[Rfam]
RNA sequence: UCGGCUUUCUUUUAUUUAUUUUUUUCAUUUUUUCUUAAAUUUAAAAUAUAUAGCUAUACAGCAAUCUCCCUCUCAAUUUAGGAGGGCCGUCUUAAGACUAGAGCUCGCUCUAAAGGCACGAGAAAACAAU
Numbered sequence: 001u002c003g004g005c006u007u008u009c010u011u012u013u014a015u016u017u018a019u020u021u022u023u024u025u026c027a028u029u030u031u032u033u034c035u036u037a038a039a040u041u042u043a044a045a046a047u048a049u050a051u052a053g054c055u056a057u058a059c060a061g062c063a064a065u066c067u068c069c070c071u072c073u074c075a076a077u078u079u080a081g082g083a084g085g086g087c088c089g090u091c092u093u094a095a096g097a098c099u100a101g102a103g104c105u106c107g108c109u110c111u112a113a114a115g116g117c118a119c120g121a122g123a124a125a126a127c128a129a130u
Stems, first nucleotide, its partner, number of pairs: 003055004008050001011048001023045003027041001029039003071123004077116003083111005089104002092101003
Small Cajal body specific RNA 11: a 130-nucleotide RNA sequence from Catagonus wagneri. Rfam 15.1 lists 853 matches to the family in 557 species. It is annotated as a small Cajal body RNA. Rfam's curators write: scaRNAs are a specific class of small nuclear RNAs which localise to the Cajal bodies and guide the modification of RNA polymerase II transcribed spliceosomal RNAs U1, U2, U4, U5 and U12. ACA57 belongs to the H/ACA box class of guide RNAs as it has the predicted hairpin-hinge-hairpin-tail structure, conserved H/ACA-box motifs and is found associated with GAR1. ACA57 is predicted to guide the pseudouridylation of the U5 spliceosomal RNA at position U43. A search with the family's covariance model found it, with a score of 58 bits.